[Rfam]
RNA sequence: GCCGAGCUUGGUAAUGUGAGCUUGUAACCCGAGUAGGGGGUUUUAAGGUGGUAGAAUGUGGGUUUGGCUUUGCUUGAGUUGGAUCUCGAGUUGUUUUAACACUAGUUUGCCUGUUCCAAGUUGAGAGUUGAGCCAAGGGACUUGAUUGUAAACUUCGAGUCUCGUGGUUCCUAGAGUGGAGGAUACUGCGUGAGGCUGAUUUCACAGAGCAGCGAAGACCUCUCUCUCCUGACAGUGGAAGGAUAACAGGCUUGAUCCACUCUAUCCAACAUGGCUCAGUGAGCUGACCUUGUCUGGACCAUUACUUUU
Numbered sequence: 001g002c003c004g005a006g007c008u009u010g011g012u013a014a015u016g017u018g019a020g021c022u023u024g025u026a027a028c029c030c031g032a033g034u035a036g037g038g039g040g041u042u043u044u045a046a047g048g049u050g051g052u053a054g055a056a057u058g059u060g061g062g063u064u065u066g067g068c069u070u071u072g073c074u075u076g077a078g079u080u081g082g083a084u085c086u087c088g089a090g091u092u093g094u095u096u097u098a099a100c101a102c103u104a105g106u107u108u109g110c111c112u113g114u115u116c117c118a119a120g121u122u123g124a125g126a127g128u129u130g131a132g133c134c135a136a137g138g139g140a141c142u143u144g145a146u147u148g149u150a151a152a153c154u155u156c157g158a159g160u161c162u163c164g165u166g167g168u169u170c171c172u173a174g175a176g177u178g179g180a181g182g183a184u185a186c187u188g189c190g191u192g193a194g195g196c197u198g199a200u201u202u203c204a205c206a207g208a209g210c211a212g213c214g215a216a217g218a219c220c221u222c223u224c225u226c227u228c229c230u231g232a233c234a235g236u237g238g239a240a241g242g243a244u245a246a247c248a249g250g251c252u253u254g255a256u257c258c259a260c261u262c263u264a265u266c267c268a269a270c271a272u273g274g275c276u277c278a279g280u281g282a283g284c285u286g287a288c289c290u291u292g293u294c295u296g297g298a299c300c301a302u303u304a305c306u307u308u309u
Base pairs, nucleotide, nucleotide: 001041002040003039004023005022006021007020008019009018010017028038029037030036045308046307047306048305049304050303051302052301054299057296058295059292060291061290062288063287064286066285067284068283070282071281072280073279074278077276078275079274080273081267082266083265084264088261090260092259093258097255102254104252105251106250107249108248109247111242112241114240115239116238117237118236120233121232122231123230125228126227127226130170131169132168133167134166135165137163138162139161140160141159142158143157144156145154147152171176178223179222180221181220182219187216189214190213191212196207197206198205
Dot-bracket structure: ((((((((((......)))))))....(((.....))))))...((((((((.(..((((((((.(((.(((((..((((((((...(.(.((...(....(.((((((.((.(((((.((((.(((..((((((.(((((((((.(....).).)))))))).))))))(....).(((((....(.(((....(((......)))....))).)..)))))..))).))))..)))))))....)))))).))..))))..)))).....)))).))))))))))).)))..))..).)))))))).

The record is a 309-nucleotide RNA sequence from Gossypium gossypioides, which matches "Plant signal recognition particle RNA" in Rfam. The source organism's lineage runs through Eukaryota, rosids, Malvales, Malvaceae and Gossypium. It is annotated as a non-coding RNA gene. A search with the family's covariance model found it, with a score of 181 bits.